[Rfam]
RNA: SAM riboswitch aptamer (S box leader)
RNA sequence: UUGUUAUCAAGAAAGGCAGAGGGAAUAGACCCGUUGAAGCCUUAGCAACCCUUUAUUUUUAAAGAAGGUGCUAAAUUCUACCCAUUAUGGAUAGAUAACGA
Number, nucleotide and partner (000 for none) at each position: 001u101002u100003g099004u098005u097006a096007u095008c094009a000010a000011g000012a000013a043014a042015g041016g040017c039018a000019g000020a000021g032022g031023g030024a000025a000026u080027a079028g078029a077030c023031c022032c021033g000034u000035u000036g000037a000038a000039g017040c016041c015042u014043u013044a072045g071046c070047a069048a000049c068050c067051c064052u063053u062054u061055a000056u000057u000058u000059u000060u000061a054062a053063a052064g051065a000066a000067g050068g049069u047070g046071c045072u044073a000074a000075a000076u093077u029078c028079u027080a026081c090082c089083c000084a000085u000086u000087a000088u000089g082090g081091a000092u000093a076094g008095a007096u006097a005098a004099c003100g002101a001